[Rfam]
RNA sequence: UCAGUGUGAUGACACUUAAGCCUUGUUACCUACGUCCUGUGGAUAAGGUAGCCUGGCCGCAACCUCAGGUUGCCAGGGUGCAGAAAGAAAUGACUGCAUCUCCCGUUACUGGAAAGGUGUAAUCUUUUGCCACAG
Numbered sequence: 001u002c003a004g005u006g007u008g009a010u011g012a013c014a015c016u017u018a019a020g021c022c023u024u025g026u027u028a029c030c031u032a033c034g035u036c037c038u039g040u041g042g043a044u045a046a047g048g049u050a051g052c053c054u055g056g057c058c059g060c061a062a063c064c065u066c067a068g069g070u071u072g073c074c075a076g077g078g079u080g081c082a083g084a085a086a087g088a089a090a091u092g093a094c095u096g097c098a099u100c101u102c103c104c105g106u107u108a109c110u111g112g113a114a115a116g117g118u119g120u121a122a123u124c125u126u127u128u129g130c131c132a133c134a135g
Stems, first nucleotide, its partner, number of pairs: 004128001006126001012120004017116001020057003025052006034044004059073005076101008086091001102112002
RNA: Molybdenum/Tungsten riboswitch aptamer (Moco RNA motif)
Organism: Erwinia sp. OLSSP12